The family of this 133-nucleotide RNA from Crocuta crocuta is "Small nucleolar RNA SNORA71". It is annotated as an H/ACA-box small nucleolar RNA. Rfam links the family to the GO terms nucleolus and RNA processing. For this family Rfam cites "The family of box ACA small nucleolar RNAs is defined by an evolutionarily conserved secondary structure and ubiquitous sequence elements essential for RNA accumulation" (Ganot et al., Genes Dev, 1997). Lineage of the source: Eukaryota > Opisthokonta > Tetrapoda > Amniota > Crocuta. Pairs were carried over by alignment from the consensus structure, which was predicted with PFOLD. The members of this family belong to the H/ACA class of snoRNAs which bind a number of proteins (including dyskerin, Gar1p and Nop10p) to form snoRNP complexes.
RNA sequence: UCUUGCAUUCGAAAGUGAUGGGGGGCUGCCCGUGCCCUGGUCAUUGAUGGUGCAGGGAGAGGACUUGCUGAAAGCGUUUCCCCAUGUUGGAAGGGCCCAUCCUGUCUCUUCCAAACUCUGGGGCUGUCGUACG
Numbered sequence: 001u002c003u004u005g006c007a008u009u010c011g012a013a014a015g016u017g018a019u020g021g022g023g024g025g026c027u028g029c030c031c032g033u034g035c036c037c038u039g040g041u042c043a044u045u046g047a048u049g050g051u052g053c054a055g056g057g058a059g060a061g062g063a064c065u066u067g068c069u070g071a072a073a074g075c076g077u078u079u080c081c082c083c084a085u086g087u088u089g090g091a092a093g094g095g096c097c098c099a100u101c102c103u104g105u106c107u108c109u110u111c112c113a114a115a116c117u118c119u120g121g122g123g124c125u126g127u128c129g130u131a132c133g
Base pairs, nucleotide, nucleotide: 001057002056003055004054005053006052007051008050009049014045015044016043017042018041019040021038023037024036025035026034067130069129070128071127073125074124075123086116087115088114090112091110092109093108094107095106